[Rfam]
RNA sequence: UAAAAGGGUCAGUUGGCUAAAUAUGCCGCUCUCACCCUUGGCUGGUGGGUGCCGUAUGGAUAUCAAGACAUAUGGCUGACAUAAUUUGUGGGACCUCCAAGGGUUGGCUCGCUUAGGGCCCACCCUCCA
Numbered sequence: 001u002a003a004a005a006g007g008g009u010c011a012g013u014u015g016g017c018u019a020a021a022u023a024u025g026c027c028g029c030u031c032u033c034a035c036c037c038u039u040g041g042c043u044g045g046u047g048g049g050u051g052c053c054g055u056a057u058g059g060a061u062a063u064c065a066a067g068a069c070a071u072a073u074g075g076c077u078g079a080c081a082u083a084a085u086u087u088g089u090g091g092g093a094c095c096u097c098c099a100a101g102g103g104u105u106g107g108c109u110c111g112c113u114u115a116g117g118g119c120c121c122a123c124c125c126u127c128c129a
Stems, first nucleotide, its partner, number of pairs: 008080005014028004029051001031049006052075007100126005106120005
Overview:
A member of the RNA family "U11 spliceosomal RNA" from Malus domestica, 129 nucleotides long. The base pairs follow the family's consensus structure, which is taken from published work. NCBI's taxonomy places the organism under Eukaryota, Streptophyta, eudicotyledons, fabids, Malus. Rfam links the family to the GO terms U11 snRNP, mRNA 5'-splice site recognition and pre-mRNA 5'-splice site binding.